[Rfam]
RNA sequence: GCACUUUGUGUGUGUGUUUGUUCAACUGGUGGACAUCUUCAGGAAGGAUGGAGUGCAAAAAUAAAUCUUCUUUUGCAACCCAGAACUUAUUGUUCAGUAUGAGUCUUGAUACACACAAGCAGGAACAUG
Number, nucleotide and partner (000 for none) at each position: 001g056002c055003a054004c053005u052006u051007u050008g049009u048010g000011u046012g000013u000014g040015u000016g038017u000018u000019u035020g034021u033022u000023c000024a000025a000026c031027u000028g000029g000030u000031g026032g000033a021034c020035a019036u000037c000038u016039u000040c014041a000042g000043g000044a000045a000046g011047g000048a009049u008050g007051g006052a005053g004054u003055g002056c001057a000058a000059a000060a000061a000062u000063a000064a000065a000066u125067c000068u123069u122070c000071u000072u119073u118074u117075g116076c000077a000078a000079c000080c000081c108082a107083g106084a000085a104086c103087u102088u101089a100090u099091u000092g000093u000094u000095c000096a000097g000098u000099a090100u089101g088102a087103g086104u085105c000106u083107u082108g081109a000110u000111a000112c000113a000114c000115a000116c075117a074118a073119g072120c000121a000122g069123g068124a000125a066126c000127a000128u000129g000
RNA: Small nucleolar RNA SNORA40
Organism: Nannospalax galili